The record is a 105-nucleotide RNA sequence from Geobacter sp. M21, which matches "SAM riboswitch aptamer (S box leader)" in Rfam. The sequence is in the family's curated seed alignment. Gene Ontology term of the family: regulation of gene expression.
[Rfam]
RNA sequence: AACUUAUCACGAGCGACCGAGGGACUGGCCCCAUGACGUCGCGGCAACCUCCCGUAAGGGAAGGUGCCAAAUCCAGCGAAGCGGCGACGCUUCGGAAGAUAAGGA
Numbered sequence: 001a002a003c004u005u006a007u008c009a010c011g012a013g014c015g016a017c018c019g020a021g022g023g024a025c026u027g028g029c030c031c032c033a034u035g036a037c038g039u040c041g042c043g044g045c046a047a048c049c050u051c052c053c054g055u056a057a058g059g060g061a062a063g064g065u066g067c068c069a070a071a072u073c074c075a076g077c078g079a080a081g082c083g084g085c086g087a088c089g090c091u092u093c094g095g096a097a098g099a100u101a102a103g104g105a
Stems, first nucleotide, its partner, number of pairs: 003103006013042005021031003025076004043068004048064002050060003072097001077094006